[Rfam]
Source information:
Rfam assigns this 90-nucleotide RNA from Ferrimonas balearica to the family "t44 RNA". From the family's description: This family consists of a number of bacterial RNA genes of between 135 and 170 bases in length.
RNA sequence: CUGUAAAGUGACUUUAUAAACCACACACGUACCGGCACAUGCUCCGGGGUGCCCGAAAGGGUCGGAACAUGGGGUGCGUGGAGGCUUAAC
Numbered sequence: 001c002u003g004u005a006a007a008g009u010g011a012c013u014u015u016a017u018a019a020a021c022c023a024c025a026c027a028c029g030u031a032c033c034g035g036c037a038c039a040u041g042c043u044c045c046g047g048g049g050u051g052c053c054c055g056a057a058a059g060g061g062u063c064g065g066a067a068c069a070u071g072g073g074g075u076g077c078g079u080g081g082a083g084g085c086u087u088a089a090c
Stems, first nucleotide, its partner, number of pairs: 026080008038071004043066004051062004